[Rfam]
RNA sequence: CCUGGGCGAUCCGACCGCGUGUCCCGCUGCCGGGCCACGGCAGCAACCCGAUCGUCGGCGGCUCGCCCGACGU
Numbered sequence: 001c002c003u004g005g006g007c008g009a010u011c012c013g014a015c016c017g018c019g020u021g022u023c024c025c026g027c028u029g030c031c032g033g034g035c036c037a038c039g040g041c042a043g044c045a046a047c048c049c050g051a052u053c054g055u056c057g058g059c060g061g062c063u064c065g066c067c068c069g070a071c072g073u
Base pairs, nucleotide, nucleotide: 007072008071017041018040020037021036023034024033025032052070053069054068
Shown here is a 73-nucleotide RNA sequence from Pseudomonas aeruginosa, a member of the family "Pseudomonas sRNA P10". The family's RNA type in Rfam is small RNA. Lineage of the source: Bacteria > Pseudomonadati > Pseudomonadota > Gammaproteobacteria > Pseudomonas aeruginosa. The literature on the family includes a 2006 paper in Nucleic Acids Res by Livny et al., "Identification of 17 Pseudomonas aeruginosa sRNAs and prediction of sRNA-encoding genes in 10 diverse pathogens using the bioinformatic tool sRNAPredict2".